[Rfam]
RNA sequence: CCAUGCUAGAUGGGAAAUUAGCGAUGUCCUGUAACCUGCAAUUCGCUACAGCAGGAUUGAAUUCCUCUUGGAGGAUUGUUUAAUCGGUAGACUGCCCCAUGAAAGCGGUGUUGAAACUUGGGUCUCACGCAACAGGAGCUUAUGAACCGUGUCAGGUCUUGACGGAAGCAGCACUAAGUAAGAUAUUCUGUGUGCCGUGAGGGUGCCUGGGUGGAGCUGGCUCCAUGGGUACCGUAUUGAUUAGCCUUUCAAUAAGAGGUGCAUGG
Numbered sequence: 001c002c003a004u005g006c007u008a009g010a011u012g013g014g015a016a017a018u019u020a021g022c023g024a025u026g027u028c029c030u031g032u033a034a035c036c037u038g039c040a041a042u043u044c045g046c047u048a049c050a051g052c053a054g055g056a057u058u059g060a061a062u063u064c065c066u067c068u069u070g071g072a073g074g075a076u077u078g079u080u081u082a083a084u085c086g087g088u089a090g091a092c093u094g095c096c097c098c099a100u101g102a103a104a105g106c107g108g109u110g111u112u113g114a115a116a117c118u119u120g121g122g123u124c125u126c127a128c129g130c131a132a133c134a135g136g137a138g139c140u141u142a143u144g145a146a147c148c149g150u151g152u153c154a155g156g157u158c159u160u161g162a163c164g165g166a167a168g169c170a171g172c173a174c175u176a177a178g179u180a181a182g183a184u185a186u187u188c189u190g191u192g193u194g195c196c197g198u199g200a201g202g203g204u205g206c207c208u209g210g211g212u213g214g215a216g217c218u219g220g221c222u223c224c225a226u227g228g229g230u231a232c233c234g235u236a237u238u239g240a241u242u243a244g245c246c247u248u249u250c251a252a253u254a255a256g257a258g259g260u261g262c263a264u265g266g
Base pairs, nucleotide, nucleotide: 001266002265003264004263005262006261009058010057011056012030013029014028015027017025018024019023035055036054037053038052039051064259065258066257067256068255069254070253073250074249075248080244081243082242083241084240085239086238087237088236089235093231094230097228098227099226100225101224105221106220107218108217109216116212117211118210119209120208121207122206123205124201125200126199127198128197129196130192131191133190134189135188136187137186139182140181141180142179143178149174150173151172152171157166158165159164
Shown here is a 266-nucleotide RNA sequence from Peptoniphilus duerdenii, a member of the family "Bacterial large signal recognition particle RNA".
Its Rfam clan is "SRP clan".
The signal recognition particle (SRP) is a universally conserved ribonucleoprotein involved in the co-translational targeting of proteins to membranes.
Rfam classes the family as a non-coding RNA gene.
A search with the family's covariance model found it, with a score of 200 bits.